Fluoride riboswitch aptamer (crcB RNA motif): a 64-nucleotide RNA sequence from Chitinophaga silvatica.
The organism belongs to Chitinophaga, within Bacteria.
The base pairs follow the family's consensus structure, which is taken from published work.
[Rfam]
RNA sequence: UGCAGCACAGGAAAUGGUGUCUUCCUACUGAACCGCUCGCAGAGCUGAUGGCGCCUACAAAUUU
Numbered sequence: 001u002g003c004a005g006c007a008c009a010g011g012a013a014a015u016g017g018u019g020u021c022u023u024c025c026u027a028c029u030g031a032a033c034c035g036c037u038c039g040c041a042g043a044g045c046u047g048a049u050g051g052c053g054c055c056u057a058c059a060a061a062u063u064u
Stems, first nucleotide, its partner, number of pairs: 010025004016055006035045004